Background
This 75-nucleotide RNA sequence from Stakelama sediminis belongs to the Rfam family "Makes More Granules Regulator RNA (mmgR)". The pairing is the family consensus, mapped onto this sequence. The family has 87 seed sequences and 1,791 matches in Rfam 15.1. Rfam links the family to the GO terms DNA-templated transcription, termination, protein binding and response to nitrogen compound. A search with the family's covariance model found it, with a score of 46 bits. SuhB later renamed mmgR (makes more granules regulator) was a putative non-coding RNA found multiple times in the Agrobacterium tumefaciens genome and related alpha-proteobacteria. Other non-coding RNAs uncovered in the same analysis include: speF, ybhL, metA, and serC.Several studies inSinorhizobium meliloti showed that suhB element is indeed a non-coding RNA:firstly it was detected on Northern blot and called Sm8RNA, secondly in an RNAseq study referred to as SmelC689.The mutant phenotype's (strain lacking the small RNA) cytoplasm contains higher content of polyhydroxybutyrate (PBH)storage granules than wild type strain. The sRNA is required to limit the PBH intracellular accumulation when the nitrogen-fixing Sinorhizobium meliloti is under condition of surplus carbon in relation to nitrogen. It has been renamed to mmgR. Further study confirmed that mmgR fine-tunes the regulation of PBH storage.Northern blot confirmed the expression of the sRNA in other rhizobia species. MmgR homologues were found in most alpha-proteobacteria. Taxonomically the source falls in Stakelama (Bacteria, Pseudomonadota, Alphaproteobacteria, Sphingomonadaceae).
[Rfam]
RNA sequence: AGAACCUGCCUUUCAGGCAUCCUCUCCUAAAAACUUUCAUAGCCGCCCUCCGGGGCGGCUUUUUUUUGGCGGUAG
Numbered sequence: 001a002g003a004a005c006c007u008g009c010c011u012u013u014c015a016g017g018c019a020u021c022c023u024c025u026c027c028u029a030a031a032a033a034c035u036u037u038c039a040u041a042g043c044c045g046c047c048c049u050c051c052g053g054g055g056c057g058g059c060u061u062u063u064u065u066u067u068g069g070c071g072g073u074a075g
Stems, first nucleotide, its partner, number of pairs: 008018004041060008